[Rfam]
PyrR binding site: a 99-nucleotide sequence from Bombilactobacillus mellis.

RNA sequence: AAAUCCUUUAAUAAUAGUCCCGUGAGACUAUGAAGGAGCUUGCUAAUCCUAAAUAAUAUUAGUUAACCCUCAUAGUCUCAACUAUGAGGGUUUUUAAUU
Numbered sequence: 001a002a003a004u005c006c007u008u009u010a011a012u013a014a015u016a017g018u019c020c021c022g023u024g025a026g027a028c029u030a031u032g033a034a035g036g037a038g039c040u041u042g043c044u045a046a047u048c049c050u051a052a053a054u055a056a057u058a059u060u061a062g063u064u065a066a067c068c069c070u071c072a073u074a075g076u077c078u079c080a081a082c083u084a085u086g087a088g089g090g091u092u093u094u095u096a097a098u099u
Stems, first nucleotide, its partner, number of pairs: 004037006014031006043062001045060003050055001065092012